[Rfam]
RNA sequence: UGUGCCGGGGUGGGCAGGCCCUAUGGCCGACUAACCCUAAUGGCGGCCGCGCCCCUCACACUCGCCCGCUGUUUUACUCGCUGACUUUCAGCGGGCAAAGGAAGCGGCCCAGGGGAAAGGGGGUGGGGGAAAAGAGUUCCGGCCUCAAAAAAAGCCAGCGAGGGGGAUCCACACCCCGGCCCACCCUGGGGUCCCUGUCCCUUCUCCGAAACCGGGGACGCUCCCGCCCUCGCCCCUCGUGGAGGCCGCGGUCGGCGGGCUCAGCGCCGCUGCCGCCGCGAAGAGUUCGGCUCUGUCAGCCUCGGCGGCGGCCGGGAGCAGAGGGCCGGCGCGCCCACCCUGGGCAGCCGGGGGACCCCAGCAGAACAAAACGGGCGCGGCGCCGCUGGGCGCUGAGCAGCCGCCGCCCCCCGAGACGUGGGGUGCGCGGCCGGCGCCGCCCCGACACCC
Number, nucleotide and partner (000 for none) at each position: 001u000002g000003u000004g180005c179006c178007g177008g176009g175010g174011u173012g172013g000014g170015c000016a000017g168018g000019c166020c165021c164022u163023a000024u000025g000026g000027c000028c000029g000030a000031c000032u000033a000034a000035c000036c000037c000038u000039a000040a000041u000042g000043g000044c000045g000046g000047c000048c000049g000050c000051g108052c107053c106054c000055c104056u000057c000058a000059c000060a000061c000062u000063c000064g096065c095066c094067c093068g092069c091070u090071g089072u000073u000074u000075u000076a000077c000078u000079c000080g159081c158082u157083g156084a000085c154086u152087u151088u150089c071090a070091g069092c068093g067094g066095g065096c064097a000098a000099a000100g000101g000102a000103a000104g055105c000106g053107g052108c051109c000110c000111a000112g000113g000114g000115g000116a000117a000118a000119g000120g000121g000122g000123g000124u000125g000126g000127g000128g000129g000130a000131a000132a000133a000134g000135a000136g000137u000138u000139c000140c000141g000142g000143c000144c000145u000146c000147a000148a000149a000150a088151a087152a086153a000154g085155c000156c083157a082158g081159c080160g000161a000162g000163g022164g021165g020166g019167a000168u017169c000170c014171a000172c012173a011174c010175c009176c008177c007178g006179g005180c004181c000182c000183a000184c000185c000186c361187u360188g359189g358190g357191g356192u355193c000194c000195c000196u000197g000198u000199c000200c000201c000202u000203u000204c000205u000206c000207c000208g000209a000210a000211a000212c000213c000214g000215g000216g000217g000218a000219c000220g319221c318222u317223c316224c315225c314226g313227c000228c000229c000230u308231c307232g306233c305234c304235c000236c000237u000238c000239g000240u000241g000242g000243a000244g000245g000246c000247c280248g279249c278250g277251g276252u000253c275254g274255g273256c272257g000258g268259g267260c266261u000262c000263a000264g000265c000266g260267c259268c258269g000270c000271u000272g256273c255274c254275g253276c251277c250278g249279c248280g247281a000282a294283g293284a292285g291286u000287u000288c000289g000290g000291c285292u284293c283294u282295g000296u000297c000298a000299g000300c000301c000302u000303c000304g234305g233306c232307g231308g230309c000310g000311g000312c000313c226314g225315g224316g223317a222318g221319c220320a000321g000322a000323g000324g000325g000326c000327c000328g000329g000330c000331g000332c000333g000334c000335c000336c000337a000338c000339c000340c000341u000342g000343g000344g000345c000346a000347g000348c000349c000350g000351g000352g000353g000354g000355a192356c191357c190358c189359c188360a187361g186362c000363a000364g000365a000366a000367c000368a000369a000370a000371a000372c000373g442374g441375g440376c439377g000378c000379g438380g437381c436382g435383c434384c433385g000386c000387u000388g000389g000390g000391c000392g000393c000394u000395g000396a000397g000398c000399a000400g000401c430402c429403g428404c427405c000406g000407c000408c423409c422410c421411c420412c000413g000414a000415g000416a000417c000418g000419u000420g411421g410422g409423g408424u000425g000426c000427g404428c403429g402430g401431c000432c000433g384434g383435c382436g381437c380438c379439g376440c375441c374442c373443c000444g000445a000446c000447a000448c000449c000450c000
Background: The record is a 450-nucleotide sequence from Setophaga kirtlandii, which matches "Vertebrate telomerase RNA" in Rfam. By type it is a non-coding RNA gene. Gene Ontology terms of the family: telomerase activity, telomerase catalytic core complex and telomere maintenance via telomerase. Clan: Telomerase clan. Telomerase is a ribonucleoprotein reverse transcriptase that synthesises telomeric DNA. Telomerase RNAs differ greatly in sequence and structure between vertebrates, ciliates and yeasts, but they share a 5' pseudoknot structure close to the template sequence. On this family, see Chen et al., Cell 2000: "Secondary structure of vertebrate telomerase RNA". The family has 37 seed sequences and 523 matches in Rfam 15.1.